[Rfam]
RNA sequence: CUGUACUACUUAAGCUGACUCACCCACCUCUCUGAGGAGGGAUCCUUGUGCAGUGACUGUAGAAAGCAGGUCUGUGGUUCUAUAUGCAGCUCAUUCCUUUUAUGUGUUGCUCUAAGGGACCUUGGAAAUAUUA
Numbered sequence: 001c002u003g004u005a006c007u008a009c010u011u012a013a014g015c016u017g018a019c020u021c022a023c024c025c026a027c028c029u030c031u032c033u034g035a036g037g038a039g040g041g042a043u044c045c046u047u048g049u050g051c052a053g054u055g056a057c058u059g060u061a062g063a064a065a066g067c068a069g070g071u072c073u074g075u076g077g078u079u080c081u082a083u084a085u086g087c088a089g090c091u092c093a094u095u096c097c098u099u100u101u102a103u104g105u106g107u108u109g110c111u112c113u114a115a116g117g118g119a120c121c122u123u124g125g126a127a128a129u130a131u132u133a
Stems, first nucleotide, its partner, number of pairs: 002052004018047001024041002076121003087109004092104001